[Rfam]
RNA sequence: AUUCCUUCUGUCGUGUAUCCUCGAUUAAUGCAACGUCAAAUGCUAUA
Number, nucleotide and partner (000 for none) at each position: 001a000002u000003u000004c000005c000006u000007u000008c000009u000010g025011u024012c023013g022014u000015g000016u000017a000018u000019c000020c000021u000022c013023g012024a011025u010026u000027a000028a000029u000030g000031c000032a044033a000034c042035g000036u000037c000038a000039a000040a000041u000042g034043c000044u032045a000046u000047a000
RNA: Plastid-ycf3 group II-D1 intron
Organism: Nicotiana attenuata